RNA sequence: AUCGUUCAAUUUGCCAUAAGCAAAUCGGAAGUAGGUUAAACCGAAGGAACGCGGA
Numbered sequence: 001a002u003c004g005u006u007c008a009a010u011u012u013g014c015c016a017u018a019a020g021c022a023a024a025u026c027g028g029a030a031g032u033a034g035g036u037u038a039a040a041c042c043g044a045a046g047g048a049a050c051g052c053g054g055a
Base pairs, nucleotide, nucleotide: 003051004050005049006048007047009025010024011023012022013021028052034042035041036040
Dot-bracket structure: ..(((((.(((((.......)))))..[.....(((...)))....)))))]...
A member of the RNA family "Glutamine riboswitch aptamer (glnA leader)", 55 nucleotides long.
The base pairs follow the family's consensus structure, which is taken from published work.
The sequence is in the family's curated seed alignment.
On this family, see Ames and Breaker, RNA Biol 2011: "Bacterial aptamers that selectively bind glutamine".